RNA sequence: UCCUGCAUUGAAAGUGAUCGUGCUCUGCCCCUGCCCUGGUCAUUGACAGUGCAGGGAGAGGAAUCGCUGAAAGAUGUUUCCCCGUGUGUGGAGGGCCCAGUGGAUCUUUCUGACACCUAGCUUCUUCCUCUUG
Numbered sequence: 001u002c003c004u005g006c007a008u009u010g011a012a013a014g015u016g017a018u019c020g021u022g023c024u025c026u027g028c029c030c031c032u033g034c035c036c037u038g039g040u041c042a043u044u045g046a047c048a049g050u051g052c053a054g055g056g057a058g059a060g061g062a063a064u065c066g067c068u069g070a071a072a073g074a075u076g077u078u079u080c081c082c083c084g085u086g087u088g089u090g091g092a093g094g095g096c097c098c099a100g101u102g103g104a105u106c107u108u109u110c111u112g113a114c115a116c117c118u119a120g121c122u123u124c125u126u127c128c129u130c131u132u133g
Stems, first nucleotide, its partner, number of pairs: 001056009013044008022036001025033001066130001069128001071126004086116004091110005
The family of this 133-nucleotide RNA from Camelus ferus is "Small nucleolar RNA SNORA71". Rfam classes the family as an H/ACA-box small nucleolar RNA. Pairs were carried over by alignment from the consensus structure, which was predicted with PFOLD. From the family's description: The members of this family belong to the H/ACA class of snoRNAs which bind a number of proteins (including dyskerin, Gar1p and Nop10p) to form snoRNP complexes. Its family is annotated with RNA processing and nucleolus in the Gene Ontology. NCBI's taxonomy places the organism under Eukaryota, Mammalia, Eutheria, Laurasiatheria, Camelus. It scores 80 bits against the family's covariance model.